[Rfam]
RNA sequence: ACAGUACAAACUGAGCAGGCGAUGAACUAAUUAUUUAGUUUAUGGGGCCGGGCUGAUAGAAGCAAUAGAAUUGUAAAACAAUACCUGUGGGACAGUA
Numbered sequence: 001a002c003a004g005u006a007c008a009a010a011c012u013g014a015g016c017a018g019g020c021g022a023u024g025a026a027c028u029a030a031u032u033a034u035u036u037a038g039u040u041u042a043u044g045g046g047g048c049c050g051g052g053c054u055g056a057u058a059g060a061a062g063c064a065a066u067a068g069a070a071u072u073g074u075a076a077a078a079c080a081a082u083a084c085c086u087g088u089g090g091g092a093c094a095g096u097a
Stems, first nucleotide, its partner, number of pairs: 010096004016091001018049003022043006052063003065088004

A member of the RNA family "NiCo (Nickel/Cobalt) riboswitch aptamer" from Clostridium sp. JN-9, 97 nucleotides long. The family's consensus secondary structure is taken from published work. On this family, see Furukawa et al., Mol Cell 2015: "Bacterial riboswitches cooperatively bind Ni(2+) or Co(2+) ions and control expression of heavy metal transporters".